[Rfam]
This 200-nucleotide RNA sequence belongs to the Rfam family "RT-16 RNA".
It is annotated as a small RNA.
RNA sequence: UUGUCCUGAGCAGGUAAAGUACCGCACAGCUUGCGGUUGAGAAUGCCCUUAGGACGGGACUAUACGUCCUGCCAUCACGCCAAGAAUCUUCCUAAAGAAGUAUUGGUAUGAAAUACAGUCACAACAACUGGUAGCUCUUGCAAAGGAGUGAACGUCUGAAGUGACAGUGGUAGAGUCAAGGGUGUGCAGGGCUACAACGC
Numbered sequence: 001u002u003g004u005c006c007u008g009a010g011c012a013g014g015u016a017a018a019g020u021a022c023c024g025c026a027c028a029g030c031u032u033g034c035g036g037u038u039g040a041g042a043a044u045g046c047c048c049u050u051a052g053g054a055c056g057g058g059a060c061u062a063u064a065c066g067u068c069c070u071g072c073c074a075u076c077a078c079g080c081c082a083a084g085a086a087u088c089u090u091c092c093u094a095a096a097g098a099a100g101u102a103u104u105g106g107u108a109u110g111a112a113a114u115a116c117a118g119u120c121a122c123a124a125c126a127a128c129u130g131g132u133a134g135c136u137c138u139u140g141c142a143a144a145g146g147a148g149u150g151a152a153c154g155u156c157u158g159a160a161g162u163g164a165c166a167g168u169g170g171u172a173g174a175g176u177c178a179a180g181g182g183u184g185u186g187c188a189g190g191g192c193u194a195c196a197a198c199g200c
Base pairs, nucleotide, nucleotide: 001057002056003055004054005053006052007051008050009049010048066192067191068190069189070188071187072186073184074183075182087173090170091169118165119164120163121162122161125158126157127155128154134149135148136147137146138145139144